ZMP/ZTP riboswitch aptamer (pfl RNA motif): a 179-nucleotide RNA from Hydrogenophaga sp. BPS33.
Taxonomically the source falls in Hydrogenophaga (Bacteria, Pseudomonadati, Pseudomonadota, Comamonadaceae).

RNA sequence: AGGUCGGUACGCGACUGGCGAUAGGCGCGCUCCCCCAUCCGCACCCGCUGCGACUGGGUGGCAGCCGCUGACGUGGCCCCCCUGAACGAUCCGCGAUCGAACUACAGGGACAACCACUGGGAAGCGUGCCGCCCCCACCAAUAGGUUGGGGUGUUCAGCCGUUCGCCUGGGCAGCCCUU
Numbered sequence: 001a002g003g004u005c006g007g008u009a010c011g012c013g014a015c016u017g018g019c020g021a022u023a024g025g026c027g028c029g030c031u032c033c034c035c036c037a038u039c040c041g042c043a044c045c046c047g048c049u050g051c052g053a054c055u056g057g058g059u060g061g062c063a064g065c066c067g068c069u070g071a072c073g074u075g076g077c078c079c080c081c082c083u084g085a086a087c088g089a090u091c092c093g094c095g096a097u098c099g100a101a102c103u104a105c106a107g108g109g110a111c112a113a114c115c116a117c118u119g120g121g122a123a124g125c126g127u128g129c130c131g132c133c134c135c136c137a138c139c140a141a142u143a144g145g146u147u148g149g150g151g152u153g154u155u156c157a158g159c160c161g162u163u164c165g166c167c168u169g170g171g172c173a174g175c176c177c178u179u
Stems, first nucleotide, its partner, number of pairs: 003133001005131008015121002017167005058117004156174001158172003